[Rfam]
RNA sequence: UUAAAAAGAAUAGAUAUACCUUGUAUAAAUUCAAGAAUACGGCUUGAAAGUUUCUACCAGCUACCAUAAAUAGCUUGUCUACAAGGAAUGGGAAAUAAAUA
Numbered sequence: 001u002u003a004a005a006a007a008g009a010a011u012a013g014a015u016a017u018a019c020c021u022u023g024u025a026u027a028a029a030u031u032c033a034a035g036a037a038u039a040c041g042g043c044u045u046g047a048a049a050g051u052u053u054c055u056a057c058c059a060g061c062u063a064c065c066a067u068a069a070a071u072a073g074c075u076u077g078u079c080u081a082c083a084a085g086g087a088a089u090g091g092g093a094a095a096u097a098a099a100u101a
Base pairs, nucleotide, nucleotide: 019086020085021084022083023082024081025080030048031047032046033045034044035043058077059076060074061073062072063071
Dot-bracket structure: ..................(((((((....((((((.......)))))).........((((((.......)))).))..)))))))...............
This 101-nucleotide RNA sequence from Neobacillus vireti belongs to the Rfam family "Purine riboswitch aptamer". NCBI's taxonomy places the organism under Bacteria, Bacillota, Bacilli, Neobacillus, Neobacillus vireti. The match comes from Rfam's covariance-model search (78 bits).